Rfam assigns this 102-nucleotide sequence from Bacillus sp. Y1 to the family "Purine riboswitch aptamer". Rfam's curators write: Riboswitches are metabolite binding domains within certain messenger RNAs that serve as precision sensors for their corresponding targets.
Nucleotides: 102
Stems, first nucleotide, its partner, number of pairs: 019087007029049001031047005058078007
Number, partner (000 for none) and nucleotide at each position: 001000a002000u003000u004000a005000a006000a007000u008000u009000c010000a011000g012000a013000a014000a015000u016000a017000g018000c019087c020086c021085u022084c023083g024082u025081a026000u027000a028000a029049u030000a031047a032046u033045g034044g035043g036000a037000a038000u039000a040000u041000g042000g043035c044034c045033c046032a047031u048000a049029a050000g051000u052000u053000u054000c055000u056000a057000c058078c059077c060076g061075a062074u063073u064072a065000c066000c067000g068000u069000a070000a071000a072064u073063g074062a075061u076060c077059g078058g079000a080000c081025u082024a083023u084022g085021a086020g087019g088000a089000a090000a091000u092000g093000u094000g095000a096000u097000a098000u099000g100000c101000c102000c